RNA sequence: CCCACACCCAUGUGUGUAAGACCCCAAAGGAUCAUCAUUAAAUUUGACACAGAUCUCUAAAAAAGUUAUCACAUGGACGUGAGACUUUACUUUUCUAGAGAUCUGUGCCAAAUUUAGUGGUGAUUCUUUGGGGUUCUACACACAUGGGUGUGGG
Numbered sequence: 001c002c003c004a005c006a007c008c009c010a011u012g013u014g015u016g017u018a019a020g021a022c023c024c025c026a027a028a029g030g031a032u033c034a035u036c037a038u039u040a041a042a043u044u045u046g047a048c049a050c051a052g053a054u055c056u057c058u059a060a061a062a063a064a065g066u067u068a069u070c071a072c073a074u075g076g077a078c079g080u081g082a083g084a085c086u087u088u089a090c091u092u093u094u095c096u097a098g099a100g101a102u103c104u105g106u107g108c109c110a111a112a113u114u115u116a117g118u119g120g121u122g123a124u125u126c127u128u129u130g131g132g133g134u135u136c137u138a139c140a141c142a143c144a145u146g147g148g149u150g151u152g153g154g
Stems, first nucleotide, its partner, number of pairs: 002153012015140004020135009030125003034121013048107012061094006068087001069082004